Background: A member of the RNA family "Potassium channel RNA editing signal" from Oncorhynchus kisutch, 114 nucleotides long. Rfam links the family to the GO term adenosine to inosine editing.
RNA sequence: CUGGGUUACGGGGACAUGUACCCCAAGACGUGGCUGGGCAUGAUAGUGGGCGCGCUGUGCGCUCUGGCGGGGGUGCUGACCAUCGCCAUGCCCGUGCCUGUUAUAGUCAACAAC
Numbered sequence: 001c002u003g004g005g006u007u008a009c010g011g012g013g014a015c016a017u018g019u020a021c022c023c024c025a026a027g028a029c030g031u032g033g034c035u036g037g038g039c040a041u042g043a044u045a046g047u048g049g050g051c052g053c054g055c056u057g058u059g060c061g062c063u064c065u066g067g068c069g070g071g072g073g074u075g076c077u078g079a080c081c082a083u084c085g086c087c088a089u090g091c092c093c094g095u096g097c098c099u100g101u102u103a104u105a106g107u108c109a110a111c112a113a114c
Stems, first nucleotide, its partner, number of pairs: 002113001004111001008107002011104001013102004018097004037077004049063003
The literature on the family includes a 2004 paper in Nat Struct Mol Biol by Bhalla et al., "Control of human potassium channel inactivation by editing of a small mRNA hairpin". The source organism's lineage runs through Eukaryota, Bilateria, Deuterostomia, Teleostomi and Oncorhynchus. Rfam's curators write: This family represents a group of sequences related to the human potassium channel Kv1.1 hairpin element which directs the efficient modification of an adenosine to inosine by an adenosine deaminase acting on RNA (ADAR). The ADAR modification causes an isoleucine/valine recoding event which lies in the ion-conducting pore of the potassium channel. It is thought that this editing event targets the process of fast inactivation and allows a more rapid recovery from inactivation at negative potentials. Rfam classes the family as a cis-regulatory element.